[Rfam]
RNA: FMN riboswitch aptamer (RFN element)
Organism: Dyella soli
RNA sequence: CGACGUCUUCAGGGCGGGGUGUGAUUCCCCACCGGCGGUAGGCACCUUCGGGUGUGAGCCCGCGAGCGCUUCCGGUGUUCCCGGAAGGUCAGCAGAUCCGGUCCGAUGCCGGAGCCGACGGUUGGAAGCUGGCGACAGCCUCCAGAUAGUCCGGAUGAGAGAAGACGGUA
Numbered sequence: 001c002g003a004c005g006u007c008u009u010c011a012g013g014g015c016g017g018g019g020u021g022u023g024a025u026u027c028c029c030c031a032c033c034g035g036c037g038g039u040a041g042g043c044a045c046c047u048u049c050g051g052g053u054g055u056g057a058g059c060c061c062g063c064g065a066g067c068g069c070u071u072c073c074g075g076u077g078u079u080c081c082c083g084g085a086a087g088g089u090c091a092g093c094a095g096a097u098c099c100g101g102u103c104c105g106a107u108g109c110c111g112g113a114g115c116c117g118a119c120g121g122u123u124g125g126a127a128g129c130u131g132g133c134g135a136c137a138g139c140c141u142c143c144a145g146a147u148a149g150u151c152c153g154g155a156u157g158a159g160a161g162a163a164g165a166c167g168g169u170a
Stems, first nucleotide, its partner, number of pairs: 004167007017029003033117002035063004058115002066093002097113005119153003
Dot-bracket structure: ...(((((((......(((.......)))...((((((...................[[))))..((........................))...(((((.......)))))]])).(((.............................))).......)))))))...